[Rfam]
RNA sequence: AAAUUGCCCCCUAAGUUUUGCAACUGCAGUUUUGGUCCCCAAUGCCAAUUUUUGGUCAAAAAAAAUAACAUGUGGCACCUCACUUGGGGUGCCACAUCAGCGUAGACCGAGUCAAAAUUGGUCUUGGAGGCCAAAACUGCCACAGAUGCAAAACUUAGGGGGUGGUUU
Numbered sequence: 001a002a003a004u005u006g007c008c009c010c011c012u013a014a015g016u017u018u019u020g021c022a023a024c025u026g027c028a029g030u031u032u033u034g035g036u037c038c039c040c041a042a043u044g045c046c047a048a049u050u051u052u053u054g055g056u057c058a059a060a061a062a063a064a065a066u067a068a069c070a071u072g073u074g075g076c077a078c079c080u081c082a083c084u085u086g087g088g089g090u091g092c093c094a095c096a097u098c099a100g101c102g103u104a105g106a107c108c109g110a111g112u113c114a115a116a117a118u119u120g121g122u123c124u125u126g127g128a129g130g131c132c133a134a135a136a137c138u139g140c141c142a143c144a145g146a147u148g149c150a151a152a153a154c155u156u157a158g159g160g161g162g163u164g165g166u167u168u
Stems, first nucleotide, its partner, number of pairs: 001168002004165005012157011024145002026140012039127004070097002073094007
Shown here is a 168-nucleotide RNA sequence from Medicago truncatula, a member of the family "MIR2619 microRNA precursor family". Rfam links the family to the GO terms RISC complex and miRNA-mediated post-transcriptional gene silencing.